[Rfam]
RNA sequence: UGCUUAUUCAGAAAGACGGAGGGAGUAGACCCAACGAAGUCUUAGCAACCUGUGCUUACAAGGUGCUAAAUUCUAUCUCAAAAUAAUGGGAGAAGAUAAGUU
Numbered sequence: 001u002g003c004u005u006a007u008u009c010a011g012a013a014a015g016a017c018g019g020a021g022g023g024a025g026u027a028g029a030c031c032c033a034a035c036g037a038a039g040u041c042u043u044a045g046c047a048a049c050c051u052g053u054g055c056u057u058a059c060a061a062g063g064u065g066c067u068a069a070a071u072u073c074u075a076u077c078u079c080a081a082a083a084u085a086a087u088g089g090g091a092g093a094a095g096a097u098a099a100g101u102u
Base pairs, nucleotide, nucleotide: 002101003100004099005098006097007096008095013043014042015041016040017039021032022031023030026075027074028073029072044067045066046065047064049063050062051060052059053058071094076091077090078089079088080087
A member of the RNA family "SAM riboswitch aptamer (S box leader)" from Arcticibacter svalbardensis, 102 nucleotides long. It scores 72 bits against the family's covariance model. The organism belongs to Arcticibacter svalbardensis, within Bacteria. Its Rfam clan is "SAM clan".